[Rfam]
RNA: Bacterial large subunit ribosomal RNA, nucleotides 2140 to 2728
Nucleotides: 589
Stems, first nucleotide, its partner, number of pairs: 001585008010577003014572002022406004027402002029398005035202004042194007051154009061144005068137001078136005085119003094113008158182006165176003205217004218240006241387001243344002249302006255281002258276006282291002307330004313324003332341003355381007363374002415456003419453001420450007430440002467542001468540004472534001473531005480505002483500006507521005548566004552561003
Number, partner (000 for none) and nucleotide at each position: 001585c002584c003583c004582g005581c006580g007579g008578c009000u010577a011576g012575a013000c014572g015571g016000a017000a018000a019000g020000a021000c022406c023405c024404c025403g026000u027402g028401a029398a030397c031396c032395u033394u034000u035202a036201c037200u038199a039000c040000a041000c042194c043193c044192u045191g046190g047189u048188a049000u050000u051154g052153g053152a054151a055150u056149u057148c058147g059146a060000u061144g062143c063142a064141u065140u066000u067000c068137g069000c070000u071000c072000a073000g074000g075000a076000u077000a078136g079135g080134u081133g082132g083000g084000a085119g086118g087117c088000u089000u090000g091000g092000a093000a094113g095112c096111g097110a098109u099108g100107g101106c102000u103000g104000c105000g106101g107100c108099u109098g110097u111096c112095g113094u114000g115000g116000a117087g118086c119085c120000a121000a122000c123000c124000u125000u126000g127000a128000g129000a130000u131000a132082c133081c134080a135079c136078c137068c138000u139000u140065g141064a142063u143062g144061u145000c146059u147058u148057g149056g150055g151054u152053u153052u154051c155000u156000a157000a158182c159181a160180c161179c162178g163177c164000g165176c166175c167174g168000u169000g170000a171000a172000u173000c174167c175166g176165g177163g178162c179161g180160g181159u182158g183000a184000a185000c186000a187000g188048u189047g190046c191045c192044a193043g194042g195000c196000g197000g198000g199038u200037a201036g202035u203000u204000u205217g206216a207215c208214u209000g210000g211000g212000g213000c214208g215207g216206u217205c218240g219239c220238c221237u222236c223235c224000c225000a226000a227000a228000a229000u230000g231000u232000a233000a234000c235223g236222g237221a238220g239219g240218c241387g242000c243344a244343c245000a246000a247000a248000g249302g250301u251300u252299c253298c254297c255281u256280c257000a258276g259275u260274a261273c262272g263271g264000u265000u266000g267000g268000a269000a270000a271263u272262c273261g274260u275259g276258c277000g278000u279000a280256g281255a282291g283290u284000g285000c286000a287000a288000a289000g290283g291282c292000a293000g294000c295000a296000a297254g298253g299252g300251a301250g302249c303000u304000u305000g306000a307330c308329u309328g310327c311000g312000a313324g314323a315322c316000c317000g318000a319000c320000a321000g322315g323314u324313c325000g326000a327310g328309c329308a330307g331000g332341u333340g334339c335000g336000a337000a338000a339334g340333c341332a342000g343244g344243u345000c346000u347000u348000a349000g350000u351000g352000a353000u354000c355381c356380g357379g358378c359377g360376g361375u362000a363374g364373c365000a366000a367000g368000u369000g370000g371000a372000a373364g374363u375361g376360c377359c378358g379357u380356c381355g382000c383000u384000c385000a386000a387241c388000g389000g390000a391000u392000a393000a394033a395032a396031g397030g398029u399000a400000c401028u402027c403025c404024g405023g406022g407000g408000a409000u410000a411000a412000c413000a414000g415456g416455c417454u418000u419453a420450u421449c422448g423447g424446g425445c426444c427000c428000a429000a430440g431439a432000g433000u434000c435000c436000a437000c438000a439431u440430c441000g442000a443000c444426g445425g446424c447423c448422c449421g450420g451000u452000u453419u454417g455416g456415c457000a458000c459000c460000u461000c462000g463000a464000u465000g466000u467542c468540g469539g470538c471537u472534c473531g474530u475529c476528g477527c478000a479000u480505c481504c482000u483500g484499g485498g486497g487496c488495u489000g490000u491000a492000g493000u494000a495488g496487g497486u498485c499484c500483c501000a502000a503000g504481g505480g506000u507521u508520g509519g510518g511517c512000u513000g514000u515000u516000c517511g518510c519509c520508c521507a522000u523000u524000a525000a526000a527477g528476c529475g530474g531473u532000a533000c534472g535000c536000g537471a538470g539469c540468u541000g542467g543000g544000u545000u546000c547000a548566g549565a550564a551563c552561g553560u554559c555000g556000u557000g558000a559554g560553a561552c562000a563551g564550u565549u566548c567000g568000g569000u570000c571015c572014c573000u574000a575012u576011c577010u578008g579007c580006c581005g582004u583003g584002g585001g586000c587000g588000u589000u